RNA sequence: CAAUUCCGAUCGCUUAAUCUCUGGGAUGUUCCAGAGAACGGGGGAACCAACAAGAGCUUGCUGUGUGAUGAUCAACGCAGCUUGCUCAUCGUCUGAAUGGCCAGGGCUGGUGUGAGAGCCAACACAGGCCAUUCGGACAGGGGUGAAUCCUGAGGAAGAGACCAUGGACUCUUCUCAGGUAGGGCGACUCUCACCGCCCGAAUCCGUCAGCUAACUUCGUCAGCGUGGGUAUGAGAGAGG
Numbered sequence: 001c002a003a004u005u006c007c008g009a010u011c012g013c014u015u016a017a018u019c020u021c022u023g024g025g026a027u028g029u030u031c032c033a034g035a036g037a038a039c040g041g042g043g044g045a046a047c048c049a050a051c052a053a054g055a056g057c058u059u060g061c062u063g064u065g066u067g068a069u070g071a072u073c074a075a076c077g078c079a080g081c082u083u084g085c086u087c088a089u090c091g092u093c094u095g096a097a098u099g100g101c102c103a104g105g106g107c108u109g110g111u112g113u114g115a116g117a118g119c120c121a122a123c124a125c126a127g128g129c130c131a132u133u134c135g136g137a138c139a140g141g142g143g144u145g146a147a148u149c150c151u152g153a154g155g156a157a158g159a160g161a162c163c164a165u166g167g168a169c170u171c172u173u174c175u176c177a178g179g180u181a182g183g184g185c186g187a188c189u190c191u192c193a194c195c196g197c198c199c200g201a202a203u204c205c206g207u208c209a210g211c212u213a214a215c216u217u218c219g220u221c222a223g224c225g226u227g228g229g230u231a232u233g234a235g236a237g238a239g240g
Stems, first nucleotide, its partner, number of pairs: 011225004018037008038220006048140001141205003149179008182199004
Rfam assigns this 240-nucleotide RNA sequence from Paenibacillus lutimineralis to the family "c-di-AMP riboswitch aptamer (ydaO/yuaA leader)".